[Rfam]
RNA: Small nucleolar RNA SNORA32
RNA sequence: GAGUCAUUACCAAAGCUGGUAGGUUGCAGUCCCUCCUUUGCUGUGCGCAUGACCAUACAAAAUUUCCGCUAGGUUUUCUAUUGCUGACUUUCUAACCAUCAACCUAUUGGGAACAAUU
Numbered sequence: 001g002a003g004u005c006a007u008u009a010c011c012a013a014a015g016c017u018g019g020u021a022g023g024u025u026g027c028a029g030u031c032c033c034u035c036c037u038u039u040g041c042u043g044u045g046c047g048c049a050u051g052a053c054c055a056u057a058c059a060a061a062a063u064u065u066c067c068g069c070u071a072g073g074u075u076u077u078c079u080a081u082u083g084c085u086g087a088c089u090u091u092c093u094a095a096c097c098a099u100c101a102a103c104c105u106a107u108u109g110g111g112a113a114c115a116a117u118u
Base pairs, nucleotide, nucleotide: 003053004052005051006050007049011045012044026041027040028039029038065111066110067109068108072104073103074102075101083097085095